[Rfam]
RNA sequence: GGAGUCAUAGGGAGGGACCCCAAUCCAGCCUUAGGAAAAGAAACCUGCCACAGGAGUCUUGAAGAUUGGCAACCAUCCUAACGACUUA
Number, nucleotide and partner (000 for none) at each position: 001g000002g087003a086004g085005u000006c083007a000008u081009a000010g079011g078012g077013a076014g000015g074016g073017a000018c000019c000020c069021c068022a067023a066024u065025c064026c000027a000028g000029c000030c061031u000032u000033a000034g000035g000036a000037a000038a060039a059040g058041a057042a000043a000044c054045c053046u052047g051048c000049c000050a000051c047052a046053g045054g044055a000056g000057u041058c040059u039060u038061g030062a000063a000064g025065a024066u023067u022068g021069g020070c000071a000072a000073c016074c015075a000076u013077c012078c011079u010080a000081a008082c000083g006084a000085c004086u003087u002088a000

mir-9014 microRNA precursor family: an 88-nucleotide RNA sequence from Equus caballus. Gene Ontology terms of the family: miRNA-mediated post-transcriptional gene silencing and RISC complex. The organism belongs to Equus, within Eukaryota. The match comes from Rfam's covariance-model search (92 bits).